Shown here is a 235-nucleotide sequence, a member of the family "RT-2 RNA". By type it is a small RNA. Rfam's curators put it in the seed alignment.

RNA sequence: AUAAAUGCUUGUGAGUAAUUCCUUUGGGAUGAAAUAAUAUAUGUAACGAAGGAAUUCAUGACCCUGCUAUAUAAUACAUAUUUUAUAUAACUAAAAUAAUUAUUCUUUCUAUCUGAUCGGACGCUUCUUGCAUGGCUAAAUAUAUUAGUCUAUUUAGUUUCAUGAUCAGUGAUAGCGAGCAUCCAAUGACUAAUAAUAAAUGAUGCAAGAAUAAUAUUCCAAAAGAAAGGAGGUA
Number, nucleotide and partner (000 for none) at each position: 001a000002u000003a000004a042005a000006u000007g000008c000009u000010u000011g000012u000013g000014a000015g000016u000017a000018a000019u029020u028021c027022c026023u000024u000025u000026g022027g021028g020029a019030u000031g000032a000033a000034a000035u000036a000037a000038u000039a000040u000041a000042u004043g000044u000045a000046a000047c000048g000049a000050a000051g000052g000053a000054a000055u000056u000057c000058a000059u000060g000061a000062c000063c000064c000065u000066g000067c000068u089069a088070u087071a086072u085073a084074a083075u000076a000077c000078a000079u000080a000081u000082u000083u074084u073085a072086u071087a070088u069089a068090a000091c000092u000093a000094a000095a000096a000097u000098a000099a215100u214101u213102a212103u211104u210105c209106u208107u000108u207109c175110u174111a173112u172113c171114u168115g167116a166117u165118c164119g000120g000121a000122c000123g131124c130125u000126u000127c000128u000129u000130g124131c123132a000133u000134g159135g158136c157137u156138a155139a154140a153141u152142a151143u000144a000145u000146u000147a000148g000149u000150c000151u142152a141153u140154u139155u138156a137157g136158u135159u134160u000161c000162a000163u000164g118165a117166u116167c115168a114169g000170u000171g113172a112173u111174a110175g109176c000177g000178a000179g206180c205181a204182u203183c202184c000185a000186a197187u196188g000189a000190c000191u000192a000193a000194u000195a000196a187197u186198a000199a000200a000201u000202g183203a182204u181205g180206c179207a108208a106209g105210a104211a103212u102213a101214a100215u099216a000217u000218u000219c000220c000221a000222a000223a000224a000225g000226a000227a000228a000229g000230g000231a000232g000233g000234u000235a000